[Rfam]
RNA sequence: GCCGAAGUGGCGGAACUGGCAGACGCGCACGACUCAAAAUCGUGUUCCUUCGGGAGUGUGGGUUCAAGUCCCACCUUCGGUA
Numbered sequence: 001g002c003c004g005a006a007g008u009g010g011c012g013g014a015a016c017u018g019g020c021a022g023a024c025g026c027g028c029a030c031g032a033c034u035c036a037a038a039a040u041c042g043u044g045u046u047c048c049u050u051c052g053g054g055a056g057u058g059u060g061g062g063u064u065c066a067a068g069u070c071c072c073a074c075c076u077u078c079g080g081u082a
Base pairs, nucleotide, nucleotide: 001081002080003079004078005077006076007075010026011025012024028044029043030042031041032040058074059073060072061071062070
This 82-nucleotide RNA sequence from Kroppenstedtia pulmonis belongs to the Rfam family "tRNA". NCBI's taxonomy places the organism under Bacteria, Bacillati, Bacillota, Bacilli, Kroppenstedtia. It is annotated as a transfer RNA. Pairs were carried over by alignment from the consensus structure, which is taken from published work.